[Rfam]
RNA sequence: AAUGCAUCAAUGAUGAUAUAACAAACUUUGUUAUCCUUGCACUUUGAUUCCUUAAAAUGAAGAAAACUAUGGGGAAAGUAACUCUGAGAUGCUU
Numbered sequence: 001a002a003u004g005c006a007u008c009a010a011u012g013a014u015g016a017u018a019u020a021a022c023a024a025a026c027u028u029u030g031u032u033a034u035c036c037u038u039g040c041a042c043u044u045u046g047a048u049u050c051c052u053u054a055a056a057a058u059g060a061a062g063a064a065a066a067c068u069a070u071g072g073g074g075a076a077a078g079u080a081a082c083u084c085u086g087a088g089a090u091g092c093u094u
Stems, first nucleotide, its partner, number of pairs: 002094001004092005
The record is a 94-nucleotide sequence from Artemisia annua, which matches "Small nucleolar RNA snoR26" in Rfam. Lineage of the source: Eukaryota > Embryophyta > Pentapetalae > Asteroideae > Artemisia. The literature on the family includes a 2001 paper in RNA by Brown et al., "Multiple snoRNA gene clusters from Arabidopsis". Gene Ontology terms of the family: nucleolus and RNA processing. A search with the family's covariance model found it, with a score of 71 bits.